RNA sequence: CCCGACACGCCUCUCAACGAUGCGUACCACGUCGGGU
Numbered sequence: 001c002c003c004g005a006c007a008c009g010c011c012u013c014u015c016a017a018c019g020a021u022g023c024g025u026a027c028c029a030c031g032u033c034g035g036g037u
Stems, first nucleotide, its partner, number of pairs: 001036006008024003
RNA: abiF RNA